[Rfam]
RNA: MIR7502 microRNA precursor family
RNA sequence: UAUUAAAAAUUCUGUCCAUUUCUACUGUUAAAAAUUGGUCUUUGCAUGUCAGCAUGAGGUAUAUGUGAUACAUCACGUGUAAGUGUCUGCUUAUUCUGUCAGCUACACCAGUUUUUAACAGUAAAAAUAGAUAAAAAUUUUAAUU
Numbered sequence: 001u002a003u004u005a006a007a008a009a010u011u012c013u014g015u016c017c018a019u020u021u022c023u024a025c026u027g028u029u030a031a032a033a034a035u036u037g038g039u040c041u042u043u044g045c046a047u048g049u050c051a052g053c054a055u056g057a058g059g060u061a062u063a064u065g066u067g068a069u070a071c072a073u074c075a076c077g078u079g080u081a082a083g084u085g086u087c088u089g090c091u092u093a094u095u096c097u098g099u100c101a102g103c104u105a106c107a108c109c110a111g112u113u114u115u116u117a118a119c120a121g122u123a124a125a126a127a128u129a130g131a132u133a134a135a136a137a138u139u140u141u142a143a144u145u
Stems, first nucleotide, its partner, number of pairs: 002144007010136002013133004018128004023123004028118006